[Rfam]
RNA: SAM-I/IV (S-adenosyl methionine) riboswitch aptamer
RNA sequence: UAAAUGCAUAGAGAGAGGAAUUCCUCAGCAACCUAGUCGCCAACUAAGGUGCUUUUUGAUGUGGUUAUACAACAAAAAAUGGCGUUC
Numbered sequence: 001u002a003a004a005u006g007c008a009u010a011g012a013g014a015g016a017g018g019a020a021u022u023c024c025u026c027a028g029c030a031a032c033c034u035a036g037u038c039g040c041c042a043a044c045u046a047a048g049g050u051g052c053u054u055u056u057u058g059a060u061g062u063g064g065u066u067a068u069a070c071a072a073c074a075a076a077a078a079a080u081g082g083c084g085u086u087c
Stems, first nucleotide, its partner, number of pairs: 006062004015026004027053003032049003035045003039085002064073003